[Rfam]
The family of this 94-nucleotide RNA sequence from Pteropus alecto is "mir-326 microRNA precursor family". For this family Rfam cites "Mammalian microRNAs: experimental evaluation of novel and previously annotated genes" (Chiang et al., Genes Dev, 2010). The base pairs follow the family's consensus structure, which was predicted with RNAalifold. Taxonomically the source falls in Pteropus (Eukaryota, Craniata, Amniota, Mammalia). Rfam links the family to the GO terms RISC complex and miRNA-mediated post-transcriptional gene silencing.

RNA sequence: CUCGUCUGUCUGUUGGGCUGGAGGCAGGGCCUUUGUGAAGGCGGGUUGUACCCAGACGCCUCUGGAUCCUUCUUCCAGCCCAGAGGCAGACUCA
Numbered sequence: 001c002u003c004g005u006c007u008g009u010c011u012g013u014u015g016g017g018c019u020g021g022a023g024g025c026a027g028g029g030c031c032u033u034u035g036u037g038a039a040g041g042c043g044g045g046u047u048g049u050a051c052c053c054a055g056a057c058g059c060c061u062c063u064g065g066a067u068c069c070u071u072c073u074u075c076c077a078g079c080c081c082a083g084a085g086g087c088a089g090a091c092u093c094a
Stems, first nucleotide, its partner, number of pairs: 004091008015081010026070004031065002039061005